This 92-nucleotide RNA sequence belongs to the Rfam family "Rhodo-rpoB RNA". The sequence is in the family's curated seed alignment.
[Rfam]
RNA sequence: GGCUCGGGCGCGAUCCGGUGGGACGGAUCGCAGGAAUGGAGCCCCCCCGUUUCGCAAAGGGCAUGUGCCUGCCGAGGCCCGGCGGCAGGCGC
Numbered sequence: 001g002g003c004u005c006g007g008g009c010g011c012g013a014u015c016c017g018g019u020g021g022g023a024c025g026g027a028u029c030g031c032a033g034g035a036a037u038g039g040a041g042c043c044c045c046c047c048c049g050u051u052u053c054g055c056a057a058a059g060g061g062c063a064u065g066u067g068c069c070u071g072c073c074g075a076g077g078c079c080c081g082g083c084g085g086c087a088g089g090c091g092c
Base pairs, nucleotide, nucleotide: 001043002042003041004040005039010031011030012029013028014027015026016025017024065092066091067090068089070087071086072085073084074083